The family of this 87-nucleotide sequence from Triticum urartu is "MIR1120/MIR1122 microRNA precursor family". A reference for the family is Yao et al. (2007), "Cloning and characterization of microRNAs from wheat (Triticum aestivum L.)", Genome Biol. The source organism's lineage runs through Eukaryota, Poaceae, Pooideae, Triticeae and Triticum. Rfam links the family to the GO terms miRNA-mediated post-transcriptional gene silencing and RISC complex.
RNA sequence: CUACUCCCUCCGUCUCAUAAUAUAAGAACUUUUUUGGCACUACACUAGUGCAAAAAACGUUCUUAUAUUAUGAAACGGAGGGAGUAA
Numbered sequence: 001c002u003a004c005u006c007c008c009u010c011c012g013u014c015u016c017a018u019a020a021u022a023u024a025a026g027a028a029c030u031u032u033u034u035u036g037g038c039a040c041u042a043c044a045c046u047a048g049u050g051c052a053a054a055a056a057a058c059g060u061u062c063u064u065a066u067a068u069u070a071u072g073a074a075a076c077g078g079a080g081g082g083a084g085u086a087a
Base pairs, nucleotide, nucleotide: 003085004084005083007081008080009079010078011077013075015073016072017071019069020068021067022066023065024064025063026062027061028060029059031057032056033055034054035053037051038050039049040048041047
Dot-bracket structure: ..(((.(((((.(.(((.(((((((((((.(((((.(((((.....))))).))))).))))))))))).))).).))))).)))..